The family of this 76-nucleotide RNA from Ictidomys tridecemlineatus is "Small nucleolar RNA SNORD115". The match comes from Rfam's covariance-model search (42 bits). Rfam links the family to the GO terms nucleolus and RNA processing.
Nucleotides: 076
Stems, first nucleotide, its partner, number of pairs: 001075002004070002008067002
Number, partner (000 for none) and nucleotide at each position: 001075g002074g003000a004070u005069a006000u007000a008067u009066g010000u011000g012000u013000a014000g015000a016000g017000a018000a019000u020000a021000u022000c023000u024000u025000a026000a027000g028000g029000a030000g031000a032000c033000a034000u035000g036000a037000u038000a039000a040000u041000g042000u043000a044000a045000a046000a047000a048000u049000c050000a051000u052000g053000c054000u055000c056000a057000a058000u059000g060000g061000g062000a063000c064000u065000a066009u067008g068000c069005u070004a071000a072000g073000g074002c075001u076000c